U11 spliceosomal RNA: a 128-nucleotide RNA sequence from Brassicogethes aeneus. Clan: U1 clan. The family's consensus secondary structure is taken from published work.
[Rfam]
RNA sequence: AAAAAGGGUGCUUGCUACUUAAGAGUACUCAAGUCUUAUGACUUGCGGGGUAUGGCAAUCAAGACAUACCCAGCACGUAAUUUUUGUUACCAGAGGCUGUUUCUUGGCAAUGCUCCAGAGACGCCUCU
Dot-bracket structure: .......(((((((((.......))))(.((((((....)))))).)(((((((..........)))))))))))).................((((.(((((.((((...)..))))))))))))..
Numbered sequence: 001a002a003a004a005a006g007g008g009u010g011c012u013u014g015c016u017a018c019u020u021a022a023g024a025g026u027a028c029u030c031a032a033g034u035c036u037u038a039u040g041a042c043u044u045g046c047g048g049g050g051u052a053u054g055g056c057a058a059u060c061a062a063g064a065c066a067u068a069c070c071c072a073g074c075a076c077g078u079a080a081u082u083u084u085u086g087u088u089a090c091c092a093g094a095g096g097c098u099g100u101u102u103c104u105u106g107g108c109a110a111u112g113c114u115c116c117a118g119a120g121a122c123g124c125c126u127c128u
Stems, first nucleotide, its partner, number of pairs: 008076005013027004028047001030045006048071007094126004099122005105117003108112001
Description: The match comes from Rfam's covariance-model search (87 bits).